[Rfam]
RNA sequence: GGAGAGAUGCCUGAGAGGCCGAAAGGAACAGUUUGCUAAACUGUCGUACUGGUAACGGUACCGAGGGUUCGAAUCCCUCUCUCUCCG
Numbered sequence: 001g002g003a004g005a006g007a008u009g010c011c012u013g014a015g016a017g018g019c020c021g022a023a024a025g026g027a028a029c030a031g032u033u034u035g036c037u038a039a040a041c042u043g044u045c046g047u048a049c050u051g052g053u054a055a056c057g058g059u060a061c062c063g064a065g066g067g068u069u070c071g072a073a074u075c076c077c078u079c080u081c082u083c084u085c086c087g
Stems, first nucleotide, its partner, number of pairs: 001086007010026003028044005063079005
tRNA: an 87-nucleotide sequence from Flectobacillus sp. BAB-3569. About the family: Transfer RNA (tRNA) molecules are approximately 80 nucleotides in length. By type it is a transfer RNA. The match comes from Rfam's covariance-model search (56 bits). Taxonomically the source falls in Flectobacillus (Bacteria, Bacteroidota, Cytophagia, Cytophagales).